[Rfam]
A member of the RNA family "Bacterial large subunit ribosomal RNA" from Malacoplasma iowae, 378 nucleotides of a longer RNA. Its Rfam clan is "LSU clan". It scores 2754 bits against the family's covariance model.
RNA sequence: GUAUGGAAGUGAGAAUCUUCCAAGCCGUAUUGACCAAGGUUUCCAGGACUAGGUUCGUCCAUCCUGGGUUAGUCGGUCCUAAGGCGAGGCCGAAAGGCGUAGUCGAUGGCAAACAGGUUAAUAUUCCUGUACCGAUACAUGAAUGAUGGAGUGACGGAGAAGGUUAUUGCAGCCCGGUUAUCGGAUUCCGGGUUAAGUGUCAAGUCUUGCAAGUUGGCAAAUCCGCUUGCUAUAAUGGUGAGGCACGAAUACGAGUGAACCCGCAAGGUAGUAGCGAAGCUGCAUAUAUCAUGCUUCCAAGAAAAGCUUCUAGUUUAUCAUUGUAUCGACCGUACCGAGAACGAACACACGUGGUCAAGGAGAGUAUCCUAAGGCUAG
Numbered sequence: 001g002u003a004u005g006g007a008a009g010u011g012a013g014a015a016u017c018u019u020c021c022a023a024g025c026c027g028u029a030u031u032g033a034c035c036a037a038g039g040u041u042u043c044c045a046g047g048a049c050u051a052g053g054u055u056c057g058u059c060c061a062u063c064c065u066g067g068g069u070u071a072g073u074c075g076g077u078c079c080u081a082a083g084g085c086g087a088g089g090c091c092g093a094a095a096g097g098c099g100u101a102g103u104c105g106a107u108g109g110c111a112a113a114c115a116g117g118u119u120a121a122u123a124u125u126c127c128u129g130u131a132c133c134g135a136u137a138c139a140u141g142a143a144u145g146a147u148g149g150a151g152u153g154a155c156g157g158a159g160a161a162g163g164u165u166a167u168u169g170c171a172g173c174c175c176g177g178u179u180a181u182c183g184g185a186u187u188c189c190g191g192g193u194u195a196a197g198u199g200u201c202a203a204g205u206c207u208u209g210c211a212a213g214u215u216g217g218c219a220a221a222u223c224c225g226c227u228u229g230c231u232a233u234a235a236u237g238g239u240g241a242g243g244c245a246c247g248a249a250u251a252c253g254a255g256u257g258a259a260c261c262c263g264c265a266a267g268g269u270a271g272u273a274g275c276g277a278a279g280c281u282g283c284a285u286a287u288a289u290c291a292u293g294c295u296u297c298c299a300a301g302a303a304a305a306g307c308u309u310c311u312a313g314u315u316u317a318u319c320a321u322u323g324u325a326u327c328g329a330c331c332g333u334a335c336c337g338a339g340a341a342c343g344a345a346c347a348c349a350c351g352u353g354g355u356c357a358a359g360g361a362g363a364g365u366a367u368c369c370u371a372a373g374g375c376u377a378g
Stems, first nucleotide, its partner, number of pairs: 004022006023376004032356004038336002043067006052060002074332004078109002083104003087100001089098003113130005133328007140320003143314002148310005156297004162290003168284005173192005193251001197246004204239003209230006216224002255275002258272001342351002358370004